The record is a 210-nucleotide sequence from Hydra vulgaris, which matches "Small nucleolar RNA U3" in Rfam. For this family Rfam cites "Nuclear retention elements of U3 small nucleolar RNA" (Speckmann et al., Mol Cell Biol, 1999). Its family is annotated with RNA processing and nucleolus in the Gene Ontology. The sequence is in the family's curated seed alignment. Its Rfam clan is "U3 clan". Small nucleolar RNAs (snoRNAs) are involved in the processing and modification of rRNA in the nucleolus. There are two main classes of snoRNAs: the box C/D class, and the box H/ACA class. U3 snoRNA is a member of the box C/D class.

RNA sequence: AAGACCGUACUAACUAGGAUCAUUUCUAUAGUAUGCGUCCUGUCAUUGUAAUUCUACAAAGACAACCCACCGAACCAUGAUGAUGAGCUGUUGUGACAGCGCCUGAGCGUGAUGCUAAUCAACUAGAGGCUUGCAGUCUUUAGUUGAUUUAGAUGAUCGUUCUGUCCGCCUAUAAUGGUGGAUAGAGGGCGCUCUCACCAGCUGAAUGGU
Number, nucleotide and partner (000 for none) at each position: 001a041002a000003g039004a038005c037006c035007g034008u033009a032010c031011u030012a000013a000014c000015u028016a027017g026018g025019a024020u000021c000022a000023u000024u019025u018026c017027u016028a015029u000030a011031g010032u009033a008034u007035g006036c000037g005038u004039c003040c000041u001042g000043u000044c000045a000046u065047u064048g063049u000050a000051a000052u061053u000054c000055u000056a000057c000058a000059a000060a000061g052062a000063c048064a047065a046066c000067c000068c000069a000070c000071c000072g000073a000074a210075c209076c208077a207078u206079g000080a000081u000082g000083a000084u000085g000086a000087g000088c000089u000090g000091u000092u000093g198094u197095g196096a195097c000098a193099g192100c191101g190102c189103c188104u187105g000106a000107g160108c159109g158110u000111g000112a000113u000114g000115c000116u000117a149118a148119u147120c146121a000122a000123c000124u000125a000126g140127a139128g138129g137130c136131u000132u000133g000134c000135a000136g130137u129138c128139u127140u126141u000142a000143g000144u000145u000146g120147a119148u118149u117150u000151a000152g000153a000154u000155g000156a000157u000158c109159g108160u107161u000162c000163u000164g183165u182166c181167c000168g179169c178170c177171u000172a000173u000174a000175a000176u000177g170178g169179u168180g000181g166182a165183u164184a000185g000186a000187g104188g103189g102190c101191g100192c099193u098194c000195u096196c095197a094198c093199c000200a000201g000202c000203u000204g000205a000206a078207u077208g076209g075210u074